RNA sequence: GCAGGAGAGGUUCAUAGCCCAAACCCUCUAUAAAAAACUAUGGAUGA
Numbered sequence: 001g002c003a004g005g006a007g008a009g010g011u012u013c014a015u016a017g018c019c020c021a022a023a024c025c026c027u028c029u030a031u032a033a034a035a036a037a038c039u040a041u042g043g044a045u046g047a
Base pairs, nucleotide, nucleotide: 006029007028008027009026010025015040016039